[Rfam]
RNA sequence: GCCAACUACUGGGACAUAGUCGUACAGAAAAUGUUGUGUUGUUCGAUUCCAAUGUUAACUGUAAGACUGUGUCUUGGUUUCUUGGU
Numbered sequence: 001g002c003c004a005a006c007u008a009c010u011g012g013g014a015c016a017u018a019g020u021c022g023u024a025c026a027g028a029a030a031a032u033g034u035u036g037u038g039u040u041g042u043u044c045g046a047u048u049c050c051a052a053u054g055u056u057a058a059c060u061g062u063a064a065g066a067c068u069g070u071g072u073c074u075u076g077g078u079u080u081c082u083u084g085g086u
Stems, first nucleotide, its partner, number of pairs: 003084003008078004013073009023063005030056007

The record is an 86-nucleotide sequence from Musca domestica, which matches "mir-999 microRNA precursor family" in Rfam. Lineage of the source: Eukaryota > Neoptera > Aparaglossata > Muscinae > Musca. A search with the family's covariance model found it, with a score of 62 bits.